[Rfam]
RNA sequence: UUUUGCCGAGGAGAUGAUGAAUAUCAGAGGCUGUUUCUGAGGAUGAGCCCAGAGCUCUACCUAUGUUGCAAAAUUACUGAUUUGCCUAUCUGAUCCAAAU
Numbered sequence: 001u002u003u004u005g006c007c008g009a010g011g012a013g014a015u016g017a018u019g020a021a022u023a024u025c026a027g028a029g030g031c032u033g034u035u036u037c038u039g040a041g042g043a044u045g046a047g048c049c050c051a052g053a054g055c056u057c058u059a060c061c062u063a064u065g066u067u068g069c070a071a072a073a074u075u076a077c078u079g080a081u082u083u084g085c086c087u088a089u090c091u092g093a094u095c096c097a098a099a100u
Base pairs, nucleotide, nucleotide: 003098004097005096008095009094045057046056047055048054068085069084070083071082072081
Record summary: Rfam assigns this 100-nucleotide sequence from Aegilops tauschii to the family "Small nucleolar RNA Z119". A reference for the family is Chen et al. (2003), "The high diversity of snoRNAs in plants: identification and comparative study of 120 snoRNA genes from Oryza sativa", Nucleic Acids Res. The source organism's lineage runs through Eukaryota, Viridiplantae, Petrosaviidae, commelinids and Aegilops tauschii. It is annotated as a C/D-box small nucleolar RNA. The base pairs follow the family's consensus structure, which was predicted with PFOLD.